[Rfam]
Nucleotides: 078
Base pairs, nucleotide, nucleotide: 001078003076004075005074007072008071009070010069012067013066014065015064016063017062018061019060020059021058022057023056024055025054026053028051029050030049031048032047033046
Number, partner (000 for none) and nucleotide at each position: 001078u002000g003076g004075u005074u006000g007072u008071u009070a010069u011000c012067u013066u014065u015064g016063g017062u018061u019060a020059u021058c022057u023056a024055g025054c026053u027000g028051u029050a030049u031048g032047a033046g034000u035000g036000u037000u038000g039000u040000c041000a042000a043000u044000c045000c046033u047032u048031c049030a050029u051028a052000a053026a054025g055024c056023u057022a058021g059020a060019u061018a062017a063016c064015c065014g066013a067012a068000a069010g070009u071008a072007a073000a074005a075004a076003u077000a078001a

This 78-nucleotide RNA sequence from Xenopus tropicalis belongs to the Rfam family "mir-9/mir-79 microRNA precursor family". The family's consensus secondary structure was predicted with RNAalifold.